[Rfam]
RNA sequence: GUUCGUUCAGGUGAUGGAGUUCACCUUUAACCGCCGAUGGCUAAUGACUCCUGCUGGUAU
Numbered sequence: 001g002u003u004c005g006u007u008c009a010g011g012u013g014a015u016g017g018a019g020u021u022c023a024c025c026u027u028u029a030a031c032c033g034c035c036g037a038u039g040g041c042u043a044a045u046g047a048c049u050c051c052u053g054c055u056g057g058u059a060u
Base pairs, nucleotide, nucleotide: 010025011024012023013022016051017050018049019048020047021046033041034040035039

A member of the RNA family "Fluoride riboswitch aptamer (crcB RNA motif)" from Paenisporosarcina cavernae, 60 nucleotides long. It scores 58 bits against the family's covariance model. The organism belongs to Paenisporosarcina, within Bacteria. The base pairs follow the family's consensus structure, which is taken from published work.